[Rfam]
RNA sequence: UAACCAGAACAGGUGUUUUGCUGUUUUACCUGUGAAUCGCCAACCUUAGGAGAACGGUGUCCGGGAGGCGACUGGCUA
Numbered sequence: 001u002a003a004c005c006a007g008a009a010c011a012g013g014u015g016u017u018u019u020g021c022u023g024u025u026u027u028a029c030c031u032g033u034g035a036a037u038c039g040c041c042a043a044c045c046u047u048a049g050g051a052g053a054a055c056g057g058u059g060u061c062c063g064g065g066a067g068g069c070g071a072c073u074g075g076c077u078a
Stems, first nucleotide, its partner, number of pairs: 001078002004075003009033004038070004044064002
Dot-bracket structure: ((.(((..((((.................))))....((((..((.................))..))))..))).))
RNA: CyVA-1 RNA